[Rfam]
RNA sequence: AUUUGUUUGUUAUUUGGGAUAAGUAGUGUAUGUGUUAUAUAAAGAGACAUAGUGGUUGGUGGAAACUAUGAUAUAACAUACAUGAAAUUCUACCCAUACAAUUUAACAAACCGACGUAUAGUCGUUAAUCAUUGAGUGAAUAGUAACCGUAUUCAGUUAUUAUUAAUUAGGGUGGCAACGCGUUUACCACGUCCCUUGU
Number, nucleotide and partner (000 for none) at each position: 001a000002u000003u000004u000005g000006u000007u101008u100009g000010u000011u000012a000013u000014u000015u096016g095017g094018g093019a000020u000021a000022a000023g000024u000025a000026g083027u082028g081029u080030a079031u078032g000033u000034g000035u000036u000037a072038u071039a000040u000041a000042a000043a000044g000045a000046g000047a000048c070049a069050u068051a067052g066053u065054g000055g000056u000057u000058g000059g000060u000061g000062g000063a000064a000065a053066c052067u051068a050069u049070g048071a038072u037073a000074u000075a000076a000077c000078a031079u030080a029081c028082a027083u026084g000085a000086a000087a000088u000089u000090c000091u000092a000093c018094c017095c016096a015097u000098a000099c000100a008101a007102u000103u000104u000105a000106a000107c000108a000109a000110a000111c000112c124113g123114a122115c000116g000117u000118a000119u000120a000121g000122u114123c113124g112125u000126u000127a000128a000129u000130c000131a000132u000133u000134g000135a000136g000137u000138g000139a164140a163141u162142a161143g160144u159145a158146a157147c156148c000149g000150u000151a000152u000153u000154c000155a000156g147157u146158u145159a144160u143161u142162a141163u140164u139165a000166a000167u000168u000169a196170g195171g194172g193173u000174g000175g000176c000177a000178a000179c000180g192181c191182g190183u189184u000185u000186a000187c000188c000189a183190c182191g181192u180193c172194c171195c170196u169197u000198g000199u000
This 199-nucleotide RNA from Abyssicoccus albus belongs to the Rfam family "T-box leader".
For this family Rfam cites "Interaction between the acceptor end of tRNA and the T box stimulates antitermination in the Bacillus subtilis tyrS gene: a new role for the discriminator base" (Grundy et al., J Bacteriol, 1994).
By type it is a cis-regulatory leader.
The organism belongs to Abyssicoccus, within Bacteria.
Rfam 15.1 lists 19,395 matches to the family in 1,923 species.
A search with the family's covariance model found it, with a score of 101 bits.